[Rfam]
RNA: Small nucleolar RNA SNORA56
Organism: Centropus unirufus
RNA sequence: GAGCAGACAGUUAUCCCUUUCUAGCCUGUGCUUGUGGUUUUAGAGGGAGUCAGUCUGCUAAAUUAAACGGGGGAGGCCCUGCUGUUGCCCAGCUCAGCUGGCCCUGGUGCUGGCUACAGGUCUCCCCUACACCA
Numbered sequence: 001g002a003g004c005a006g007a008c009a010g011u012u013a014u015c016c017c018u019u020u021c022u023a024g025c026c027u028g029u030g031c032u033u034g035u036g037g038u039u040u041u042a043g044a045g046g047g048a049g050u051c052a053g054u055c056u057g058c059u060a061a062a063u064u065a066a067a068c069g070g071g072g073g074a075g076g077c078c079c080u081g082c083u084g085u086u087g088c089c090c091a092g093c094u095c096a097g098c099u100g101g102c103c104c105u106g107g108u109g110c111u112g113g114c115u116a117c118a119g120g121u122c123u124c125c126c127c128u129a130c131a132c133c134a
Base pairs, nucleotide, nucleotide: 003058004057005056006055007054008053020044021043022042023041024040025037026036070127071126072125073124074123075122076121078120079119080118087114088113089112093109095107097105